[Rfam]
RNA sequence: UAGCGUGUGAUGAGGUACUCGGAUUCCCCUUCUGGACAUCAUGGGUGAUGCAAUACCGAGUCUCUGAUGCU
Numbered sequence: 001u002a003g004c005g006u007g008u009g010a011u012g013a014g015g016u017a018c019u020c021g022g023a024u025u026c027c028c029c030u031u032c033u034g035g036a037c038a039u040c041a042u043g044g045g046u047g048a049u050g051c052a053a054u055a056c057c058g059a060g061u062c063u064c065u066g067a068u069g070c071u
Stems, first nucleotide, its partner, number of pairs: 002071004
RNA: Small nucleolar RNA snoR60
Organism: Ricinus communis